RNA sequence: UCGCAUCCGCCAACCGGUUCAGCCGUGUCGCGGAAGGUUCCACAACCAGCUGAAGCUUCCUGAAGGGAAGCAGAAAGUAGCG
Numbered sequence: 001u002c003g004c005a006u007c008c009g010c011c012a013a014c015c016g017g018u019u020c021a022g023c024c025g026u027g028u029c030g031c032g033g034a035a036g037g038u039u040c041c042a043c044a045a046c047c048a049g050c051u052g053a054a055g056c057u058u059c060c061u062g063a064a065g066g067g068a069a070g071c072a073g074a075a076a077g078u079a080g081c082g
Stems, first nucleotide, its partner, number of pairs: 002082003006034005015025004036047004049078003055071007

The family of this 82-nucleotide sequence from Ramlibacter humi is "SucA RNA motif". The match comes from Rfam's covariance-model search (77 bits). Rfam classes the family as a cis-regulatory element. Pairs were carried over by alignment from the consensus structure, which is taken from published work.